[Rfam]
Nucleotides: 298
Base pairs, nucleotide, nucleotide: 001015002014004012016295017294018293019292020291022289028287029286030285031284034282035281036280037279041270042269043268044265046263048261049260050259056073057072058071059070060069061068062067076252077251084245086243087242089237090236091235092234093233094232095231096230098227099226100225101224103222104221105220106219120158121157124156126154128152129151131149132148133147134146135145137144138143164170165169174217175216176215177214178213179212184209185208186207191202192201193200
Number, partner (000 for none) and nucleotide at each position: 001015g002014c003000a004012c005000u006000g007000u008000a009000a010000c011000g012004g013000c014002g015001c016295a017294a018293c019292g020291a021000a022289g023000c024000c025000c026000c027000u028287c029286g030285c031284c032000g033000a034282c035281c036280u037279c038000a039000c040000a041270c042269u043268u044265c045000c046263c047000u048261c049260c050259c051000c052000g053000c054000c055000c056073g057072u058071u059070u060069c061068c062067c063000u064000c065000a066000g067062g068061g069060g070059a071058g072057a073056c074000c075000c076252c077251c078000c079000c080000g081000c082000a083000a084245g085000g086243c087242g088000c089237c090236c091235a092234g093233u094232u095231c096230g097000a098227a099226c100225g101224c102000c103222g104221u105220g106219g107000u108000g109000a110000c111000c112000g113000g114000g115000a116000u117000u118000u119000u120158c121157a122000c123000a124156a125000u126154c127000a128152a129151g130000c131149u132148c133147a134146c135145g136000c137144u138143g139000g140000a141000a142000a143138c144137a145135c146134g147133u148132g149131a150000u151129u152128u153000c154126g155000c156124u157121u158120g159000c160000c161000g162000g163000u164170c165169c166000u167000a168000a169165g170164g171000u172000a173000c174217g175216g176215g177214g178213g179212u180000g181000a182000c183000g184209c185208u186207u187000c188000a189000g190000g191202g192201a193200g194000g195000u196000u197000u198000c199000a200193c201192u202191c203000u204000g205000c206000a207186g208185a209184g210000g211000c212179a213178c214177c215176c216175u217174c218000c219106c220105c221104a222103u223000c224101g225100c226099g227098u228000g229000g230096c231095g232094a233093a234092u235091u236090g237089g238000a239000u240000c241000a242087c243086g244000a245084c246000c247000g248000u249000g250000g251077g252076g253000g254000g255000a256000u257000g258000c259050g260049g261048g262000u263046g264000a265044g266000g267000g268043g269042g270041g271000a272000u273000g274000a275000g276000g277000c278000a279037g280036a281035g282034g283000a284031g285030g286029c287028g288000a289022c290000g291020u292019u293018g294017u295016u296000u297000u298000u
Source information
Rfam assigns this 298-nucleotide RNA from Ophiocordyceps camponoti-floridani to the family "Fungal signal recognition particle RNA". The family has 50 seed sequences and 748 matches in Rfam 15.1. Taxonomically the source falls in Ophiocordyceps (Eukaryota, Dikarya, saccharomyceta, leotiomyceta).